[Rfam]
RNA sequence: AACUAGCCCCGAUGGAAACGGCAUCCUUUUGUGAUGAGGAACGAAGAGCAAAAGAUAUAGUGGACAGCGGGUUCCCGG
Number, nucleotide and partner (000 for none) at each position: 001a000002a000003c000004u000005a000006g000007c000008c000009c070010c069011g068012a000013u066014g065015g000016a000017a000018a061019c060020g000021g000022c000023a056024u055025c054026c000027u000028u000029u051030u050031g049032u048033g000034a000035u000036g000037a000038g000039g000040a000041a000042c000043g000044a000045a000046g000047a000048g032049c031050a030051a029052a000053a000054g025055a024056u023057a000058u000059a000060g019061u018062g000063g000064a000065c014066a013067g000068c011069g010070g009071g000072u000073u000074c000075c000076c000077g000078g000
Shown here is a 78-nucleotide RNA from Chryseobacterium sp. Leaf394, a member of the family "Flavo-1 RNA". Pairs were carried over by alignment from the consensus structure, which is taken from published work. It is annotated as a small RNA. It scores 55 bits against the family's covariance model. The organism belongs to Chryseobacterium, within Bacteria.